Shown here is a 52-nucleotide RNA sequence from Roseibium hamelinense, a member of the family "ffh sRNA".
A search with the family's covariance model found it, with a score of 47 bits.
RNA sequence: GAUCCUGGAGGCUAACAUCCGAUAGCGCGUUGCGCCCUCGGAUGCCAAUCCG
Numbered sequence: 001g002a003u004c005c006u007g008g009a010g011g012c013u014a015a016c017a018u019c020c021g022a023u024a025g026c027g028c029g030u031u032g033c034g035c036c037c038u039c040g041g042a043u044g045c046c047a048a049u050c051c052g
Base pairs, nucleotide, nucleotide: 016044017043018042019041020040021039022038025035026034027033028032